RNA sequence: ACCUAGGCCCUUUUAAGGGCCACCAACAAAGUCACGAUAGAUCUUU
Numbered sequence: 001a002c003c004u005a006g007g008c009c010c011u012u013u014u015a016a017g018g019g020c021c022a023c024c025a026a027c028a029a030a031g032u033c034a035c036g037a038u039a040g041a042u043c044u045u046u
Base pairs, nucleotide, nucleotide: 006021007020008019009018010017011016

The family of this 46-nucleotide RNA sequence from Acanthosepion pharaonis is "Histone 3' UTR stem-loop". NCBI's taxonomy places the organism under Eukaryota, Opisthokonta, Bilateria, Sepiidae, Acanthosepion. Rfam classes the family as a cis-regulatory element. The family's consensus secondary structure is taken from published work. The match comes from Rfam's covariance-model search (34 bits).